[Rfam]
RNA: Bacillaceae-1 RNA
RNA sequence: AGGAUAGGUUUACAGGCUAAGAACGCAACAUCCUGUUGCAACGCCUGCACUAGCCCAUCCUGGGCG
Numbered sequence: 001a002g003g004a005u006a007g008g009u010u011u012a013c014a015g016g017c018u019a020a021g022a023a024c025g026c027a028a029c030a031u032c033c034u035g036u037u038g039c040a041a042c043g044c045c046u047g048c049a050c051u052a053g054c055c056c057a058u059c060c061u062g063g064g065c066g
Stems, first nucleotide, its partner, number of pairs: 011049001013047005025039005053065004